[Rfam]
RNA: c-di-AMP riboswitch aptamer (ydaO/yuaA leader)
RNA sequence: UGAGUCAGUCGGCUUAAUUCAUCCGUACGGAUGGAGCGGAGGAACCAAUUUUUGGGGCGAACCGUUUGCUGGUUUUAGACCGUAGGAAGUUAGAGCUGCACUCGUGGUUCUAAUGUCCAGGAUCUAAAAUUUAGCUCGGAGGGUAUCUCUCAACCCUAGCCCGUCAGCUAACCCCGUCAGCAUUGAGGGAAGACUGA
Numbered sequence: 001u002g003a004g005u006c007a008g009u010c011g012g013c014u015u016a017a018u019u020c021a022u023c024c025g026u027a028c029g030g031a032u033g034g035a036g037c038g039g040a041g042g043a044a045c046c047a048a049u050u051u052u053u054g055g056g057g058c059g060a061a062c063c064g065u066u067u068g069c070u071g072g073u074u075u076u077a078g079a080c081c082g083u084a085g086g087a088a089g090u091u092a093g094a095g096c097u098g099c100a101c102u103c104g105u106g107g108u109u110c111u112a113a114u115g116u117c118c119a120g121g122a123u124c125u126a127a128a129a130u131u132u133a134g135c136u137c138g139g140a141g142g143g144u145a146u147c148u149c150u151c152a153a154c155c156c157u158a159g160c161c162c163g164u165c166a167g168c169u170a171a172c173c174c175c176g177u178c179a180g181c182a183u184u185g186a187g188g189g190a191a192g193a194c195u196g197a
Stems, first nucleotide, its partner, number of pairs: 012181003018035007036177004041172001046054002055162003063138002141156004